Description: Rfam assigns this 70-nucleotide sequence from Chloropsis hardwickii to the family "Small nucleolar RNA SNORD73". The family has 25 seed sequences and 769 matches in Rfam 15.1. Gene Ontology terms of the family: RNA processing and nucleolus. Rfam classes the family as a C/D-box small nucleolar RNA. Taxonomically the source falls in Chloropsis (Eukaryota, Craniata, Tetrapoda, Neoaves).

RNA sequence: AAUGAAUGAUGACAAGAUGUUUCGGUCCCAGAUGACGUGGAAUGAUUCCAUUUUGUCUGUUUCUGACAUU
Numbered sequence: 001a002a003u004g005a006a007u008g009a010u011g012a013c014a015a016g017a018u019g020u021u022u023c024g025g026u027c028c029c030a031g032a033u034g035a036c037g038u039g040g041a042a043u044g045a046u047u048c049c050a051u052u053u054u055g056u057c058u059g060u061u062u063c064u065g066a067c068a069u070u
Stems, first nucleotide, its partner, number of pairs: 001070004